[Rfam]
RNA sequence: CUAGAUAAAGGCAAACCUUUCGAAAGAAUGGGACGCAAAGUUACAGGUCUAAGGUUCUAUACUAUGAUGGCUGUGCUGCCUCAA
Numbered sequence: 001c002u003a004g005a006u007a008a009a010g011g012c013a014a015a016c017c018u019u020u021c022g023a024a025a026g027a028a029u030g031g032g033a034c035g036c037a038a039a040g041u042u043a044c045a046g047g048u049c050u051a052a053g054g055u056u057c058u059a060u061a062c063u064a065u066g067a068u069g070g071c072u073g074u075g076c077u078g079c080c081u082c083a084a
Stems, first nucleotide, its partner, number of pairs: 003081002011036002016031002019028003034070001039077003044073003047068003
Dot-bracket structure: ..((......((...((.(((....))).))..[))..(((..((((((................))).]))).)))..))...
RNA: c-di-GMP-I-GGC riboswitch aptamer
Organism: Bacillus sp. AFS073361